Shown here is a 95-nucleotide RNA sequence from Brachionus calyciflorus, a member of the family "mir-87 microRNA precursor family".
Rfam 15.1 lists 420 matches to the family in 285 species.
The organism belongs to Brachionus, within Eukaryota.
The base pairs follow the family's consensus structure, which was predicted with RNAalifold.
RNA sequence: GACUAUUGCGCUUGAAACAUUGUUCAAACCUUAGUUAAUGUACUAUGGAUAGUUAUCUAUUUAGCAGGUGAGCAAAGUUUCAAGUGUGUUUGUUA
Numbered sequence: 001g002a003c004u005a006u007u008g009c010g011c012u013u014g015a016a017a018c019a020u021u022g023u024u025c026a027a028a029c030c031u032u033a034g035u036u037a038a039u040g041u042a043c044u045a046u047g048g049a050u051a052g053u054u055a056u057c058u059a060u061u062u063a064g065c066a067g068g069u070g071a072g073c074a075a076a077g078u079u080u081c082a083a084g085u086g087u088g089u090u091u092g093u094u095a
Stems, first nucleotide, its partner, number of pairs: 002093002005090001007088001009086007017078002020075002023072004029068003